The record is an 85-nucleotide sequence from Rugositalea oryzae, which matches "Fluoride riboswitch aptamer (crcB RNA motif)" in Rfam.
RNA sequence: UGCGCCGAUGGGAAUGGGGUUCUCCCGAUAACCGCCCGGCGAACAGACAAUCCAGGUUCGUUGCGCUGAUGACUCCUACCGCUGA
Numbered sequence: 001u002g003c004g005c006c007g008a009u010g011g012g013a014a015u016g017g018g019g020u021u022c023u024c025c026c027g028a029u030a031a032c033c034g035c036c037c038g039g040c041g042a043a044c045a046g047a048c049a050a051u052c053c054a055g056g057u058u059c060g061u062u063g064c065g066c067u068g069a070u071g072a073c074u075c076c077u078a079c080c081g082c083u084g085a
Stems, first nucleotide, its partner, number of pairs: 010026004016076006034066002